[Rfam]
RNA sequence: GAAUCAGGUGAUGAGAAAUAAUAACUGCAACAAUAUGAUCGGAAAAUCUCCAUGAUUCGUUGUAUUUAAGUCUCUGAUGAUU
Numbered sequence: 001g002a003a004u005c006a007g008g009u010g011a012u013g014a015g016a017a018a019u020a021a022u023a024a025c026u027g028c029a030a031c032a033a034u035a036u037g038a039u040c041g042g043a044a045a046a047u048c049u050c051c052a053u054g055a056u057u058c059g060u061u062g063u064a065u066u067u068a069a070g071u072c073u074c075u076g077a078u079g080a081u082u
Base pairs, nucleotide, nucleotide: 001082002081004080005079006078041051042050043049
Rfam assigns this 82-nucleotide RNA sequence from Sesamum indicum to the family "Small nucleolar RNA Z199". The literature on the family includes a 2003 paper in Nucleic Acids Res by Chen et al., "The high diversity of snoRNAs in plants: identification and comparative study of 120 snoRNA genes from Oryza sativa". The match comes from Rfam's covariance-model search (75 bits). Rfam's curators write: snoZ199 is a C/D box small nucleolar RNA, which acts as a methylation guide RNA for sites on 18S and 25S rRNA. Rice snoZ199 is reported to be homologous to Arabidopsis snoR13. Taxonomically the source falls in Sesamum (Eukaryota, Pentapetalae, lamiids, Pedaliaceae). Its family is annotated with nucleolus and RNA processing in the Gene Ontology.